[Rfam]
RNA sequence: ACUUUACAACUUUUACUUUUUAUCAAAAGAUAUUGUUUUGUCGCUAAAUAUUGUCUGUAUUAAAUUUUGUCGCUUUUGUCAUAAGGAUGCAUAUCUUAAUUGAGGUAGAGGGGUUUUAGUCGGUAGGUCCAAGGACUUCUUUCUCGGGAAUCCGACACUACCCAGUCGUACGGACGGCUGGGUGUCUUCUGAAGAUUUCCCCUCUUCCACGAAA
Numbered sequence: 001a002c003u004u005u006a007c008a009a010c011u012u013u014u015a016c017u018u019u020u021u022a023u024c025a026a027a028a029g030a031u032a033u034u035g036u037u038u039u040g041u042c043g044c045u046a047a048a049u050a051u052u053g054u055c056u057g058u059a060u061u062a063a064a065u066u067u068u069g070u071c072g073c074u075u076u077u078g079u080c081a082u083a084a085g086g087a088u089g090c091a092u093a094u095c096u097u098a099a100u101u102g103a104g105g106u107a108g109a110g111g112g113g114u115u116u117u118a119g120u121c122g123g124u125a126g127g128u129c130c131a132a133g134g135a136c137u138u139c140u141u142u143c144u145c146g147g148g149a150a151u152c153c154g155a156c157a158c159u160a161c162c163c164a165g166u167c168g169u170a171c172g173g174a175c176g177g178c179u180g181g182g183u184g185u186c187u188u189c190u191g192a193a194g195a196u197u198u199c200c201c202c203u204c205u206u207c208c209a210c211g212a213a214a
Stems, first nucleotide, its partner, number of pairs: 066213005104208002107205002110201003119156005128148003132144001134143002158184001160183005